[Rfam]
RNA sequence: CGGCGUAAUCGUAGCGAGGGAAUUCGGCAAAAUAGCCCCGUACCUUUGGUAGAAGGGGUGCCAGCCAUGAAGAUGGCUGGUCUCAGUAACAAGGGAGCUCCGACUGUUUAACAAAAACAUAGGUCACAGCUAGUUCGAAAGGAUGUGUAUUGUGGCUGAAGCCUGCCCAGUGACGGUAUCUGAAACUCGGGUUCAACUGAGCGAAGGACCGUUAAACGGCGGGGGUAACUAUGACCCUCUUAAGGUAGCGUAAUACCUUGUCGCUUAAUUGGCGACUUGCAUGAAGGCACAACGAGAGCUCUACUGUCCCCGCUUCGAAGCCGGUGAAACUGAUAGUACCGGCGCACAAUCCGGUAU
Numbered sequence: 001c002g003g004c005g006u007a008a009u010c011g012u013a014g015c016g017a018g019g020g021a022a023u024u025c026g027g028c029a030a031a032a033u034a035g036c037c038c039c040g041u042a043c044c045u046u047u048g049g050u051a052g053a054a055g056g057g058g059u060g061c062c063a064g065c066c067a068u069g070a071a072g073a074u075g076g077c078u079g080g081u082c083u084c085a086g087u088a089a090c091a092a093g094g095g096a097g098c099u100c101c102g103a104c105u106g107u108u109u110a111a112c113a114a115a116a117a118c119a120u121a122g123g124u125c126a127c128a129g130c131u132a133g134u135u136c137g138a139a140a141g142g143a144u145g146u147g148u149a150u151u152g153u154g155g156c157u158g159a160a161g162c163c164u165g166c167c168c169a170g171u172g173a174c175g176g177u178a179u180c181u182g183a184a185a186c187u188c189g190g191g192u193u194c195a196a197c198u199g200a201g202c203g204a205a206g207g208a209c210c211g212u213u214a215a216a217c218g219g220c221g222g223g224g225g226u227a228a229c230u231a232u233g234a235c236c237c238u239c240u241u242a243a244g245g246u247a248g249c250g251u252a253a254u255a256c257c258u259u260g261u262c263g264c265u266u267a268a269u270u271g272g273c274g275a276c277u278u279g280c281a282u283g284a285a286g287g288c289a290c291a292a293c294g295a296g297a298g299c300u301c302u303a304c305u306g307u308c309c310c311c312g313c314u315u316c317g318a319a320g321c322c323g324g325u326g327a328a329a330c331u332g333a334u335a336g337u338a339c340c341g342g343c344g345c346a347c348a349a350u351c352c353g354g355u356a357u
Stems, first nucleotide, its partner, number of pairs: 001323004009318003013314004018309003035059005044049001060081009082086001094302007101294002105119003122157008130147001133144004161288003165220003170217002172213005179208003186201005221239006240244001260276006338355005
Dot-bracket structure: ((((....(((.((((.(((..............(((((....(....).....)))))(((((((((....)))))))))(...).......(((((((((..(((.........)))..(((((((((..((((....))))..)..))))))))...(((.(((..(((((((..(((....(((((......)))))....))))))))..)))))((((((.......))))))(...)...............((((((.....)))))).........)))....)).)))))))....))).)))).))).))))..............(((((........)))))..